[Rfam]
RNA sequence: GGUCAUGAGUGCCAGCGUCAAGCCCCGGCUUGCUGGCCGGCAACCCUCCUCCGCGGUGGGGUGCCCCGGGUGAGGACCAGGCCCUGUCGCACCAGGCGACAAGGGCAAGCGCGGACC
Numbered sequence: 001g002g003u004c005a006u007g008a009g010u011g012c013c014a015g016c017g018u019c020a021a022g023c024c025c026c027g028g029c030u031u032g033c034u035g036g037c038c039g040g041c042a043a044c045c046c047u048c049c050u051c052c053g054c055g056g057u058g059g060g061g062u063g064c065c066c067c068g069g070g071u072g073a074g075g076a077c078c079a080g081g082c083c084c085u086g087u088c089g090c091a092c093c094a095g096g097c098g099a100c101a102a103g104g105g106c107a108a109g110c111g112c113g114g115a116c117c
Base pairs, nucleotide, nucleotide: 001078002077003076004075009038011037012036013035014034015033016032021030022029039065040064041063044061045060046059048056049055081106082105083104084103085102086100087099088098089097